The family of this 48-nucleotide RNA from Neobittarella massiliensis is "uup RNA". NCBI's taxonomy places the organism under Bacteria, Bacillota, Clostridia, Oscillospiraceae, Neobittarella (ex Bilen et al. 2018). The match comes from Rfam's covariance-model search (41 bits).
RNA sequence: GAAAGCUGUGCUCUGUACAACUGCAUUUGGCGAGACACUGUACAGAGC
Numbered sequence: 001g002a003a004a005g006c007u008g009u010g011c012u013c014u015g016u017a018c019a020a021c022u023g024c025a026u027u028u029g030g031c032g033a034g035a036c037a038c039u040g041u042a043c044a045g046a047g048c
Stems, first nucleotide, its partner, number of pairs: 011047005017041003

Pairs were carried over by alignment from the consensus structure, which is taken from published work.